Source information: Shown here is a 55-nucleotide RNA sequence from Xanthobacter sp. SG618, a member of the family "terC RNA". A search with the family's covariance model found it, with a score of 50 bits.

[Rfam]
RNA sequence: UCACCGGUCCGGGCCCCUCUGGCGCAGGUCUUCUGCGUGAUGUCGGAUCAGGCGU
Dot-bracket structure: .....(((((((.........((((((.....))))))....)))))))......
Notes
The family's RNA type in Rfam is cis-regulatory element.